[Rfam]
The record is a 69-nucleotide RNA from Gorilla gorilla, which matches "mir-24 microRNA precursor family" in Rfam.
RNA sequence: GCCUCCCGUGCCUACUGAGCUGAAACACAGUUGGUUUGUGUACACUGGCUCAGUUCAGCAGGAACAGGG
Numbered sequence: 001g002c003c004u005c006c007c008g009u010g011c012c013u014a015c016u017g018a019g020c021u022g023a024a025a026c027a028c029a030g031u032u033g034g035u036u037u038g039u040g041u042a043c044a045c046u047g048g049c050u051c052a053g054u055u056c057a058g059c060a061g062g063a064a065c066a067g068g069g
Base pairs, nucleotide, nucleotide: 004069005068006067008065009064011062012061013060015058016057017056018055019054020053021052022051023050028047029046030045031044
NCBI's taxonomy places the organism under Eukaryota, Craniata, Sarcopterygii, Catarrhini, Gorilla.
The family has 63 seed sequences and 1,372 matches in Rfam 15.1.
It is one of the family's seed sequences.